[Rfam]
RNA sequence: AAAAAUGUGAUCUUGCUUGUAAAUACAAUUUUGAGAGGUUAAUAAAUUACAAGUAGUGCUAUUUUUGUAUUUAGGUUAGCUAUUUAGCUUUACGUUCCAGGAUGCCUAGUGGCAGCCCCACAAUAUCCAGGAAGCCCUCUCUGCGGCUUUUCAACCUUGAGGC
Numbered sequence: 001a002a003a004a005a006u007g008u009g010a011u012c013u014u015g016c017u018u019g020u021a022a023a024u025a026c027a028a029u030u031u032u033g034a035g036a037g038g039u040u041a042a043u044a045a046a047u048u049a050c051a052a053g054u055a056g057u058g059c060u061a062u063u064u065u066u067g068u069a070u071u072u073a074g075g076u077u078a079g080c081u082a083u084u085u086a087g088c089u090u091u092a093c094g095u096u097c098c099a100g101g102a103u104g105c106c107u108a109g110u111g112g113c114a115g116c117c118c119c120a121c122a123a124u125a126u127c128c129a130g131g132a133a134g135c136c137c138u139c140u141c142u143g144c145g146g147c148u149u150u151u152c153a154a155c156c157u158u159g160a161g162g163c
Base pairs, nucleotide, nucleotide: 001066002065003064004063005062006061007060014055015054016053017052018051019050020049021048022047024045033141034140035139036138037137038136072108073107074106075105076104078089079088080087081086095133096132097131098130100128101127102126103125109121110120111119112118155162156161
Background:
Rfam assigns this 163-nucleotide sequence from Cripavirus grylli to the family "Cripavirus internal ribosome entry site (IRES)". NCBI's taxonomy places the organism under Viruses, Riboviria, Orthornavirae, Dicistroviridae, Cripavirus grylli. The literature on the family includes a 2016 paper in Elife by Murray et al., "Structural characterization of ribosome recruitment and translocation by type IV IRES". Rfam describes the family as follows. This family represents a Cripavirus internal ribosome entry site (IRES) which is required for the production of capsid proteins through IRES-mediated translation.